Rfam assigns this 171-nucleotide RNA sequence from Malus domestica to the family "small nucleolar RNA snoR127". The source organism's lineage runs through Eukaryota, Spermatophyta, Pentapetalae, fabids and Malus. A search with the family's covariance model found it, with a score of 58 bits. Rfam 15.1 lists 273 matches to the family in 170 species. The family's consensus secondary structure was predicted with RNAalifold.
[Rfam]
RNA sequence: CUGGGAUGAUGCAAAUUAGCCAAAUCAUACGUCGAUGUGCUCCAUAAGGCAUUUUUUUCGAAGCGCUUUGCCAGUCUCUUCCAUGGACUUGGCAAGGCUUUAGAAAUUUGCCUUUUGUAGAAGCGUAUCUAUCUGAUGAUACAAUAGAGAUAGGGUUCCUUGCUGACCGGA
Numbered sequence: 001c002u003g004g005g006a007u008g009a010u011g012c013a014a015a016u017u018a019g020c021c022a023a024a025u026c027a028u029a030c031g032u033c034g035a036u037g038u039g040c041u042c043c044a045u046a047a048g049g050c051a052u053u054u055u056u057u058u059c060g061a062a063g064c065g066c067u068u069u070g071c072c073a074g075u076c077u078c079u080u081c082c083a084u085g086g087a088c089u090u091g092g093c094a095a096g097g098c099u100u101u102a103g104a105a106a107u108u109u110g111c112c113u114u115u116u117g118u119a120g121a122a123g124c125g126u127a128u129c130u131a132u133c134u135g136a137u138g139a140u141a142c143a144a145u146a147g148a149g150a151u152a153g154g155g156u157u158c159c160u161u162g163c164u165g166a167c168c169g170g171a
Base pairs, nucleotide, nucleotide: 001170002169003168004167